[Rfam]
RNA sequence: CCGCUGUGAUGGGAAGAUUUUUCGUCAACAGCAUUUCACGGUGUGAAUGUUGAGUUCGGUGGGCUGAGCGG
Numbered sequence: 001c002c003g004c005u006g007u008g009a010u011g012g013g014a015a016g017a018u019u020u021u022u023c024g025u026c027a028a029c030a031g032c033a034u035u036u037c038a039c040g041g042u043g044u045g046a047a048u049g050u051u052g053a054g055u056u057c058g059g060u061g062g063g064c065u066g067a068g069c070g071g
Stems, first nucleotide, its partner, number of pairs: 002070003008026004
RNA: Small nucleolar RNA SNORD56
Organism: Gallus gallus